[Rfam]
RNA sequence: UCAUCUGCCCACUACGAUGGUGCGCAGUUCCCACUGCGAUUGCGUUCUUAUAACGUGGGCAAUAACAAAUAUAUAUCUAUCUUAUCCGUAGCGGUACAAUGUGUAAAUUGCCGACAUUUGCCGUAUGAACUGAAGAAACAUUUGC
Numbered sequence: 001u002c003a004u005c006u007g008c009c010c011a012c013u014a015c016g017a018u019g020g021u022g023c024g025c026a027g028u029u030c031c032c033a034c035u036g037c038g039a040u041u042g043c044g045u046u047c048u049u050a051u052a053a054c055g056u057g058g059g060c061a062a063u064a065a066c067a068a069a070u071a072u073a074u075a076u077c078u079a080u081c082u083u084a085u086c087c088g089u090a091g092c093g094g095u096a097c098a099a100u101g102u103g104u105a106a107a108u109u110g111c112c113g114a115c116a117u118u119u120g121c122c123g124u125a126u127g128a129a130c131u132g133a134a135g136a137a138a139c140a141u142u143u144g145c
Base pairs, nucleotide, nucleotide: 006061007060008059009058010057011056012055024043025042026041027040028039093139095137100132101131106126108123110122112120113119114118
Shown here is a 145-nucleotide RNA from Drosophila albomicans, a member of the family "Small nucleolar RNA psi28S-2876". About the family: psi28S-2876 is a member of the H/ACA class of snoRNA. This family is responsible for guiding the modification of uridines 2876 and 2956 to pseudouridine in Drosophila 28S rRNA. Its family is annotated with RNA processing and nucleolus in the Gene Ontology. It is annotated as an H/ACA-box small nucleolar RNA. Taxonomically the source falls in Drosophila (Eukaryota, Bilateria, Brachycera, Drosophilini). Pairs were carried over by alignment from the consensus structure, which was predicted with PFOLD.